[Rfam]
RNA: Iron response element I
RNA sequence: CUGUCUCUUGCUUCAACUGUUUGGAUGGAACAG
Numbered sequence: 001c002u003g004u005c006u007c008u009u010g011c012u013u014c015a016a017c018u019g020u021u022u023g024g025a026u027g028g029a030a031c032a033g
Base pairs, nucleotide, nucleotide: 001033002032003031004030006029007028008027010026012025013024014023015022016021